RNA sequence: GGGGGGAGCCCCGGAUCUUGGGCUGUGUACCCCAGCGCCCUGGGCUCCAGGGCCUCUGCAGCUGGAAUCAUACUCCAGGGGCUGUGCAGCCCCCU
Numbered sequence: 001g002g003g004g005g006g007a008g009c010c011c012c013g014g015a016u017c018u019u020g021g022g023c024u025g026u027g028u029a030c031c032c033c034a035g036c037g038c039c040c041u042g043g044g045c046u047c048c049a050g051g052g053c054c055u056c057u058g059c060a061g062c063u064g065g066a067a068u069c070a071u072a073c074u075c076c077a078g079g080g081g082c083u084g085u086g087c088a089g090c091c092c093c094c095u
Base pairs, nucleotide, nucleotide: 001095002094003093004092005091006090011086012084013083014082017079018078020076021075022074024072025071026070027069028066031065032064033061035059036058037057042054044053045052046051